Small nucleolar RNA SNORD24: a 76-nucleotide RNA sequence from Crocodylus porosus.
The base pairs follow the family's consensus structure, which was predicted with PFOLD.
It scores 81 bits against the family's covariance model.
Rfam classes the family as a C/D-box small nucleolar RNA.
Nucleotides: 076
Stems, first nucleotide, its partner, number of pairs: 001076004
Number, partner (000 for none) and nucleotide at each position: 001076u002075g003074c004073a005000a006000a007000u008000g009000a010000u011000g012000c013000a014000a015000a016000u017000g018000a019000a020000u021000a022000u023000u024000u025000g026000c027000u028000a029000u030000c031000u032000g033000a034000a035000u036000g037000a038000u039000a040000a041000u042000g043000c044000u045000g046000a047000u048000g049000c050000a051000g052000a053000u054000a055000a056000a057000c058000c059000a060000c061000c062000a063000a064000g065000a066000u067000c068000g069000c070000u071000g072000a073004u074003g075002c076001a